[Rfam]
RNA sequence: AAAGAGUCAUACGGUGAAGGGCUAGCGACCCACGCCGGCCCCGAGUCAUGCGGAGCUGCCUGCAAGGGCAGCGUCGAAGCGUUGAUAGGGGCACGUGCGGGCCGGGUAUUGAGCCGCGAAAGAACAUGCCUUCGGGGUGCCGACGCUGUCAGGAGAAGCGGAAGGCCCCACCCGGCGCAUCGAUAGCGCGAGAUGCGGCGGGACCCCGCGCGGUCAGAGACCC
Dot-bracket structure: ...........(((((..(((.[.[[..))).))))).((((..(((((((((.(((((((....))))))).)))...)).)))).))))..................((.((((((..............(((((((((..((((.........))))...)))....((((.((((((......]].])))))).))))))))))))))))).)......
Group II catalytic intron D1-D4-6: a 223-nucleotide sequence. From the family's description: Group II introns are found in rRNA, tRNA and mRNA of organelles in fungi, plants and protists, and also in mRNA in bacteria. On this family, see Lehmann and Schmidt, Crit Rev Biochem Mol Biol 2003: "Group II introns: structure and catalytic versatility of large natural ribozymes".